Overview
Shown here is an 82-nucleotide sequence, a member of the family "Small nucleolar RNA SNORD34". The literature on the family includes a 2002 paper in Mol Cell Biol by Galardi et al., "Purified box C/D snoRNPs are able to reproduce site-specific 2'-O-methylation of target RNA in vitro". About the family: snoRNA U34 is found in intron 5 of the ribosomal protein L13a gene in humans. It is annotated as a C/D-box small nucleolar RNA. Its Rfam clan is "SNORD34 clan".

RNA sequence: AAGGCCUAUGAUGAUUCAAAUUUUGCCUACAUUGUUUGAUAAACCAAUGAUAUAACUUGUACAAAAUGUUUUCUGAGGCCUU
Numbered sequence: 001a002a003g004g005c006c007u008a009u010g011a012u013g014a015u016u017c018a019a020a021u022u023u024u025g026c027c028u029a030c031a032u033u034g035u036u037u038g039a040u041a042a043a044c045c046a047a048u049g050a051u052a053u054a055a056c057u058u059g060u061a062c063a064a065a066a067u068g069u070u071u072u073c074u075g076a077g078g079c080c081u082u
Stems, first nucleotide, its partner, number of pairs: 001082001003080004
Dot-bracket structure: (.((((......................................................................)))).)